[Rfam]
RNA: Streptomyces RNA 3202
Organism: Streptomyces sp. PAN_FS17
RNA sequence: CCAAGUCCCGACGCACUCCCCCCGGCGCCGGGACUUUCCCCGAGCCGGGCUUCGGCGCCCAUCCCCCCUGGGUGCCGGGGCCCGGCUCUCUU
Numbered sequence: 001c002c003a004a005g006u007c008c009c010g011a012c013g014c015a016c017u018c019c020c021c022c023c024g025g026c027g028c029c030g031g032g033a034c035u036u037u038c039c040c041c042g043a044g045c046c047g048g049g050c051u052u053c054g055g056c057g058c059c060c061a062u063c064c065c066c067c068c069u070g071g072g073u074g075c076c077g078g079g080g081c082c083c084g085g086c087u088c089u090c091u092u
Stems, first nucleotide, its partner, number of pairs: 005034006012027003042088010053077009